This 420-nucleotide RNA sequence from Sarocladium strictum belongs to the Rfam family "Nuclear RNase P". By type it is a ribozyme. The family is grouped with related families in Rfam's "RNaseP clan".
RNA sequence: ACCACCCCAAGGCUGCGUUUCUAUGCUACAAACAGAGAGUAUUUCUUCCCUCGUUUCAGAGGGUCCCUGAAAUUCUCUCAUCUACCUUUCUUGCAUAUGAGAAAUUCGGAGUAUUCUUCAACCUUUCCUACACCAAGCUCAUCUCAUGCGUUUUGUGUUUUCACAUAAGACGUCUGGGUUGAUGUUUUCUUGGUCUGCCCGUGAGGGCCUGGCGCCACUCCGGCGUCUGCAAUUGGCAUCAGAAAAGCAGGGGAUAACUGGUUUCCCCCUUUCCCCCCGGGAAACGGGGGACUCCAUGUUACACCCCCUUUGGGAGAGCCGUUGCGAAGAUUGUGUUGGUCCACUUGAGUGCGAUACGCGGCGUGUCCUCCUUUCUCUGAAAGGGGUGACAUAAUUCAAUUCCGAUCAUUCUGGGGUGGU
Numbered sequence: 001a002c003c004a005c006c007c008c009a010a011g012g013c014u015g016c017g018u019u020u021c022u023a024u025g026c027u028a029c030a031a032a033c034a035g036a037g038a039g040u041a042u043u044u045c046u047u048c049c050c051u052c053g054u055u056u057c058a059g060a061g062g063g064u065c066c067c068u069g070a071a072a073u074u075c076u077c078u079c080a081u082c083u084a085c086c087u088u089u090c091u092u093g094c095a096u097a098u099g100a101g102a103a104a105u106u107c108g109g110a111g112u113a114u115u116c117u118u119c120a121a122c123c124u125u126u127c128c129u130a131c132a133c134c135a136a137g138c139u140c141a142u143c144u145c146a147u148g149c150g151u152u153u154u155g156u157g158u159u160u161u162c163a164c165a166u167a168a169g170a171c172g173u174c175u176g177g178g179u180u181g182a183u184g185u186u187u188u189c190u191u192g193g194u195c196u197g198c199c200c201g202u203g204a205g206g207g208c209c210u211g212g213c214g215c216c217a218c219u220c221c222g223g224c225g226u227c228u229g230c231a232a233u234u235g236g237c238a239u240c241a242g243a244a245a246a247g248c249a250g251g252g253g254a255u256a257a258c259u260g261g262u263u264u265c266c267c268c269c270u271u272u273c274c275c276c277c278c279g280g281g282a283a284a285c286g287g288g289g290g291a292c293u294c295c296a297u298g299u300u301a302c303a304c305c306c307c308c309u310u311u312g313g314g315a316g317a318g319c320c321g322u323u324g325c326g327a328a329g330a331u332u333g334u335g336u337u338g339g340u341c342c343a344c345u346u347g348a349g350u351g352c353g354a355u356a357c358g359c360g361g362c363g364u365g366u367c368c369u370c371c372u373u374u375c376u377c378u379g380a381a382a383g384g385g386g387u388g389a390c391a392u393a394a395u396u397c398a399a400u401u402c403c404g405a406u407c408a409u410u411c412u413g414g415g416g417u418g419g420u
Base pairs, nucleotide, nucleotide: 001420002419003418004417007414008413009412012362013361014360015359016358017357018356022097023096024095025094035079036078037077038076039075107404108403109402110401111400116329117328118327119326197208198207199206200205211227212226213225214224215223229325230324231323232322235320236319237318251309252308253307363392364391365390366389367388369386370385371384372383373382374381